[Rfam]
RNA sequence: CUUAAAUGUUGUUGCGACAGCAAUCAACCUUAGUACGAGAGGAACCGGUUGUUCAGACCUCUGGUUCGUGCACUUGGUCGAGUGACCAGCGGUGCCACGCUAAGUCUGUUGGAUUACCCCUGAAGGCCUCUUAACGGGGAAUCCGUGCUGGAACCUUGUAGCAAUGAUACUUCCUGGGGGUCUCCAAGUUCGGCCGAGUCUGAACGAUCAAUGUGAUCAUGAGGCGGCUACUCUUCGGGGGAUGCCGUCAUAAUACCUAAGCUCUCACGUCUGCCAAGGGCGUACUGGCCCAGACAUAUCCCCUCGUUGCGGAUGGAGUCAGCCCCUAGCGGACAGAUCAAGGGUAUAGUUCGAAGUUGGGACUCAGAAUCGUGUGUAAACGACUCAAGUAAGGCAGGGUGUUGUAAGCGGUAGAGCAGUUCAUAUGCUGCGAUCUGCUAAGACUUUUCCCUCUUGCUUUCGAAGAUUCGU
Numbered sequence: 001c002u003u004a005a006a007u008g009u010u011g012u013u014g015c016g017a018c019a020g021c022a023a024u025c026a027a028c029c030u031u032a033g034u035a036c037g038a039g040a041g042g043a044a045c046c047g048g049u050u051g052u053u054c055a056g057a058c059c060u061c062u063g064g065u066u067c068g069u070g071c072a073c074u075u076g077g078u079c080g081a082g083u084g085a086c087c088a089g090c091g092g093u094g095c096c097a098c099g100c101u102a103a104g105u106c107u108g109u110u111g112g113a114u115u116a117c118c119c120c121u122g123a124a125g126g127c128c129u130c131u132u133a134a135c136g137g138g139g140a141a142u143c144c145g146u147g148c149u150g151g152a153a154c155c156u157u158g159u160a161g162c163a164a165u166g167a168u169a170c171u172u173c174c175u176g177g178g179g180g181u182c183u184c185c186a187a188g189u190u191c192g193g194c195c196g197a198g199u200c201u202g203a204a205c206g207a208u209c210a211a212u213g214u215g216a217u218c219a220u221g222a223g224g225c226g227g228c229u230a231c232u233c234u235u236c237g238g239g240g241g242a243u244g245c246c247g248u249c250a251u252a253a254u255a256c257c258u259a260a261g262c263u264c265u266c267a268c269g270u271c272u273g274c275c276a277a278g279g280g281c282g283u284a285c286u287g288g289c290c291c292a293g294a295c296a297u298a299u300c301c302c303c304u305c306g307u308u309g310c311g312g313a314u315g316g317a318g319u320c321a322g323c324c325c326c327u328a329g330c331g332g333a334c335a336g337a338u339c340a341a342g343g344g345u346a347u348a349g350u351u352c353g354a355a356g357u358u359g360g361g362a363c364u365c366a367g368a369a370u371c372g373u374g375u376g377u378a379a380a381c382g383a384c385u386c387a388a389g390u391a392a393g394g395c396a397g398g399g400u401g402u403u404g405u406a407a408g409c410g411g412u413a414g415a416g417c418a419g420u421u422c423a424u425a426u427g428c429u430g431c432g433a434u435c436u437g438c439u440a441a442g443a444c445u446u447u448u449c450c451c452u453c454u455u456g457c458u459u460u461c462g463a464a465g466a467u468u469c470g471u
Base pairs, nucleotide, nucleotide: 008165009164010163011162012161013160014159015158018150019149020148021147023053025051026050027049028048029047054108055107056106057105058104062102063101064100070095071094072093073092074089075088076087077086078085079084110145111144112143117138118137119136121134172362173361174360175359176358177357367469368468369467370466371465373387374386376384391460392459393458394457395456396455397451398450399449401444402443408438409437410436411435413434416431417430418429419428420427
Description
The family of this 471-nucleotide part of an RNA from Oryza brachyantha is "Eukaryotic large subunit ribosomal RNA".